[Rfam]
RNA sequence: GGCGCGAAUGUGGGAGAACCGGCCGAGAGACCGGUGCCGAAGGAGCAACCGCCCCGGAAACUCUCAGGCGAAUGGACCGCAUCUCGCAU
Numbered sequence: 001g002g003c004g005c006g007a008a009u010g011u012g013g014g015a016g017a018a019c020c021g022g023c024c025g026a027g028a029g030a031c032c033g034g035u036g037c038c039g040a041a042g043g044a045g046c047a048a049c050c051g052c053c054c055c056g057g058a059a060a061c062u063c064u065c066a067g068g069c070g071a072a073u074g075g076a077c078c079g080c081a082u083c084u085c086g087c088a089u
Base pairs, nucleotide, nucleotide: 006084008082009081010080011079012078013077019034020033021032022031036069037068038067039065040064043063044062045061049057050056

Record summary
Rfam assigns this 89-nucleotide RNA sequence from Seohaeicola zhoushanensis to the family "Glycine riboswitch aptamer". The source organism's lineage runs through Bacteria, Pseudomonadati, Pseudomonadota, Rhodobacterales and Seohaeicola. It scores 55 bits against the family's covariance model. This family represents the bacterial glycine riboswitch.